Eukaryotic small subunit ribosomal RNA: a 593-nucleotide part of an RNA from Batkoa obscura. Rfam's curators put it in the seed alignment. For this family Rfam cites "The comparative RNA web (CRW) site: an online database of comparative sequence and structure information for ribosomal, intron, and other RNAs" (Cannone et al., BMC Bioinformatics, 2002). Taxonomically the source falls in Batkoa (Eukaryota, Opisthokonta, Fungi, Entomophthoromycotina). The family's consensus secondary structure is taken from published work.

[Rfam]
RNA sequence: AGUCAUAUGCUCGUCUUUAAGAUUAAGCCAUGCAAGUCUAAGAUCAGGAAGGUUUACCUUCGAAUCUGCGGAUGGCUCAUUAAACCAGUGUUAAUCUAUCAGAUUAACAUAGACGGAUACCCCAGGCAAAUCUUGGACUAAUACGCGCAACAUAACAGCUCUGACUUUCAUGGAAGGAGUGUGCUUACAAGUCCAAAACCAUCGCUUGAAACUUGUUUCUUGCUUUGAAAUUGAAGAAAUGUAACUUCACUGAUCGUAGCACGUCACUACGACAUGUCUGACAAGACACUGACCCAUCAACUUGAUAUUUGGCUAUAGCCCAGAUAUGGUUACAACGGGUAACGGGGAAUGAAGGUUCGAUUCCGGAGAGGCAGCCUGAGAAACGGCUACCGGUCCUAAGGGAGACAGCAGGCGCGAAAAUUACCCAAUGCUGACCUAGUGAGGUAGUGACGAUAAAUAACAAUCCGAGUAUUUUUAAUAUUUGGAAUUGGAAUGAGAAAACAUUAAAUCACUUAACGAAAUCAAUUGGAGGGCAAGUCUGGUGCCAGCAGCCGCGGUAAUUCCAGCUCCAAUAGCGUAUAUUUAAAUUGCUG
Numbered sequence: 001a002g003u004c005a006u007a008u009g010c011u012c013g014u015c016u017u018u019a020a021g022a023u024u025a026a027g028c029c030a031u032g033c034a035a036g037u038c039u040a041a042g043a044u045c046a047g048g049a050a051g052g053u054u055u056a057c058c059u060u061c062g063a064a065u066c067u068g069c070g071g072a073u074g075g076c077u078c079a080u081u082a083a084a085c086c087a088g089u090g091u092u093a094a095u096c097u098a099u100c101a102g103a104u105u106a107a108c109a110u111a112g113a114c115g116g117a118u119a120c121c122c123c124a125g126g127c128a129a130a131u132c133u134u135g136g137a138c139u140a141a142u143a144c145g146c147g148c149a150a151c152a153u154a155a156c157a158g159c160u161c162u163g164a165c166u167u168u169c170a171u172g173g174a175a176g177g178a179g180u181g182u183g184c185u186u187a188c189a190a191g192u193c194c195a196a197a198a199c200c201a202u203c204g205c206u207u208g209a210a211a212c213u214u215g216u217u218u219c220u221u222g223c224u225u226u227g228a229a230a231u232u233g234a235a236g237a238a239a240u241g242u243a244a245c246u247u248c249a250c251u252g253a254u255c256g257u258a259g260c261a262c263g264u265c266a267c268u269a270c271g272a273c274a275u276g277u278c279u280g281a282c283a284a285g286a287c288a289c290u291g292a293c294c295c296a297u298c299a300a301c302u303u304g305a306u307a308u309u310u311g312g313c314u315a316u317a318g319c320c321c322a323g324a325u326a327u328g329g330u331u332a333c334a335a336c337g338g339g340u341a342a343c344g345g346g347g348a349a350u351g352a353a354g355g356u357u358c359g360a361u362u363c364c365g366g367a368g369a370g371g372c373a374g375c376c377u378g379a380g381a382a383a384c385g386g387c388u389a390c391c392g393g394u395c396c397u398a399a400g401g402g403a404g405a406c407a408g409c410a411g412g413c414g415c416g417a418a419a420a421u422u423a424c425c426c427a428a429u430g431c432u433g434a435c436c437u438a439g440u441g442a443g444g445u446a447g448u449g450a451c452g453a454u455a456a457a458u459a460a461c462a463a464u465c466c467g468a469g470u471a472u473u474u475u476u477a478a479u480a481u482u483u484g485g486a487a488u489u490g491g492a493a494u495g496a497g498a499a500a501a502c503a504u505u506a507a508a509u510c511a512c513u514u515a516a517c518g519a520a521a522u523c524a525a526u527u528g529g530a531g532g533g534c535a536a537g538u539c540u541g542g543u544g545c546c547a548g549c550a551g552c553c554g555c556g557g558u559a560a561u562u563c564c565a566g567c568u569c570c571a572a573u574a575g576c577g578u579a580u581a582u583u584u585a586a587a588u589u590g591c592u593g
Stems, first nucleotide, its partner, number of pairs: 001583003005580007014455001016453002020448001021415001027413003031410003036069002041067003048061002076368003086291003091286002095284001101279004114145002122136005158180005165173002185244005201232001209218003254272006293339003300330003305327008343365004347358004370391002373388003394403003421446001423445003429441005461490003464486010497517001499514001501513001526572006539566004548555002